[Rfam]
RNA sequence: ACCUUCUCUCUAAAGCACCCUGCUCAAACUGCGGGAGCCUAAGCCUCACAGGUUUAGCUCCUGUGGCUGUGUAAGCAUGGGUACACCAGGGAAGAAGAUUAUAAAGGCACAGUAUUGGAAAUGGGCCUCGGGGGGACCUCUUUCUUAAUGUCCAAUGUCCUUUGCCUCAAGAUCCUGUGUUACACUG
Numbered sequence: 001a002c003c004u005u006c007u008c009u010c011u012a013a014a015g016c017a018c019c020c021u022g023c024u025c026a027a028a029c030u031g032c033g034g035g036a037g038c039c040u041a042a043g044c045c046u047c048a049c050a051g052g053u054u055u056a057g058c059u060c061c062u063g064u065g066g067c068u069g070u071g072u073a074a075g076c077a078u079g080g081g082u083a084c085a086c087c088a089g090g091g092a093a094g095a096a097g098a099u100u101a102u103a104a105a106g107g108c109a110c111a112g113u114a115u116u117g118g119a120a121a122u123g124g125g126c127c128u129c130g131g132g133g134g135g136a137c138c139u140c141u142u143u144c145u146u147a148a149u150g151u152c153c154a155a156u157g158u159c160c161u162u163u164g165c166c167u168c169a170a171g172a173u174c175c176u177g178u179g180u181u182a183c184a185c186u187g
Stems, first nucleotide, its partner, number of pairs: 018081002021077004028070002031067001034061002037058002041055006106181007114173001131156001134153003

The family of this 187-nucleotide RNA sequence from Mola mola is "Small nucleolar RNA SNORA81".
The family's consensus secondary structure was predicted with WAR.
The source organism's lineage runs through Eukaryota, Neopterygii, Neoteleostei, Eurypterygia and Mola.
By type it is an H/ACA-box small nucleolar RNA.
Its family is annotated with nucleolus and RNA processing in the Gene Ontology.